This 90-nucleotide RNA sequence from Lachnospiraceae bacterium 3_1_57FAA_CT1 belongs to the Rfam family "c-di-GMP-I riboswitch aptamer". The match comes from Rfam's covariance-model search (60 bits). Gene Ontology term of the family: cyclic-di-GMP binding.

RNA sequence: GAUUUCAUUUGGCAAAGCCGGCGAAAGCCGGUGACGCAAAGCUAGAGGGCCUUGUAUCCGUUAUUCGGUAUGUGGCAGCCAGUUGCAAAA
Numbered sequence: 001g002a003u004u005u006c007a008u009u010u011g012g013c014a015a016a017g018c019c020g021g022c023g024a025a026a027g028c029c030g031g032u033g034a035c036g037c038a039a040a041g042c043u044a045g046a047g048g049g050c051c052u053u054g055u056a057u058c059c060g061u062u063a064u065u066c067g068g069u070a071u072g073u074g075g076c077a078g079c080c081a082g083u084u085g086c087a088a089a090a
Stems, first nucleotide, its partner, number of pairs: 012037002017032006040084004047080002049076003058068002